[Rfam]
RNA sequence: CUUCCCAUUUAUUUGCUGCUGUAAUCUCUCAGUGGUAUGAGCAGUUAUAUGUACGAGAUAAAGCAAUAUUGGGCUAUCAGAAGUUGAGGUGAAGUAUUCCAUCACUCCUGCCUGGUAUGGACAUUG
Number, nucleotide and partner (000 for none) at each position: 001c000002u000003u058004c057005c000006c055007a000008u053009u000010u000011a000012u000013u000014u000015g045016c044017u043018g042019c041020u040021g000022u037023a036024a000025u035026c034027u000028c000029u000030c000031a000032g000033u000034g026035g025036u023037a022038u000039g000040a020041g019042c018043a017044g016045u015046u000047a000048u000049a000050u000051g000052u000053a008054c000055g006056a000057g004058a003059u000060a000061a000062a000063g000064c000065a000066a000067u000068a000069u120070u119071g118072g000073g116074c115075u114076a113077u000078c000079a000080g000081a109082a000083g000084u000085u000086g105087a000088g103089g102090u101091g100092a000093a098094g000095u000096a000097u000098u093099c000100c091101a090102u089103c088104a000105c086106u000107c000108c000109u081110g000111c000112c000113u076114g075115g074116u073117a000118u071119g070120g069121a000122c000123a000124u000125u000126g000